[Rfam]
RNA: Bacterial small signal recognition particle RNA
Nucleotides: 097
Stems, first nucleotide, its partner, number of pairs: 004091005009085006017076005024066004034059004042051003
Number, partner (000 for none) and nucleotide at each position: 001000g002000g003000a004091a005090g006089g007088u008087c009085g010084g011083u012082g013081c014080g015000g016000a017076c018075g019074g020073g021072c022000u023000c024066c025065u026064c027063g028000c029000c030000a031000a032000c033000c034059c035058g036057g037056u038000c039000a040000g041000g042051u043050c044049c045000g046000g047000a048000a049044g050043g051042a052000a053000g054000c055000a056037g057036c058035c059034g060000u061000a062000a063027c064026g065025g066024g067000u068000u069000c070000u071000u072021g073020c074019c075018c076017g077000g078000g079000u080014c081013g082012u083011g084010u085009c086000c087008g088007g089006c090005c091004u092000u093000c094000c095000a096000c097000c